[Rfam]
RNA: Small nucleolar RNA SNORA74
RNA sequence: UCCAGUGGUAGUCAGCUAGCCGUUGCUGCUCAGUGCCUGGGAUAGUGUUAUGCUGCUGGGAGAGAAACGUGCUGCCGAGUGGCUCCUGGCACCGCCAGUGCUGUUCUAGCAUUGGAUGGUGCCAGGUUUUUGGCAGCGCUCUGCAUGCCUGAGAGUGGAGUAACUCCUUCUCGGUGGAGUUAAUCCUAGAUUGGAUGCAGACAAU
Numbered sequence: 001u002c003c004a005g006u007g008g009u010a011g012u013c014a015g016c017u018a019g020c021c022g023u024u025g026c027u028g029c030u031c032a033g034u035g036c037c038u039g040g041g042a043u044a045g046u047g048u049u050a051u052g053c054u055g056c057u058g059g060g061a062g063a064g065a066a067a068c069g070u071g072c073u074g075c076c077g078a079g080u081g082g083c084u085c086c087u088g089g090c091a092c093c094g095c096c097a098g099u100g101c102u103g104u105u106c107u108a109g110c111a112u113u114g115g116a117u118g119g120u121g122c123c124a125g126g127u128u129u130u131u132g133g134c135a136g137c138g139c140u141c142u143g144c145a146u147g148c149c150u151g152a153g154a155g156u157g158g159a160g161u162a163a164c165u166c167c168u169u170c171u172c173g174g175u176g177g178a179g180u181u182a183a184u185c186c187u188a189g190a191u192u193g194g195a196u197g198c199a200g201a202c203a204a205u
Base pairs, nucleotide, nucleotide: 001060002059003058004057005056006055007054008053009052011051012050015046016045017044018043020041021039022038025036026035069139070138071137072136073135074134075133076132077131082129085126086125088123089122090121091120092119093118095115096114097112099111100110101109102108141200142199143198144197145196146195148193157186158185159184161182162181163180164179165178166177167176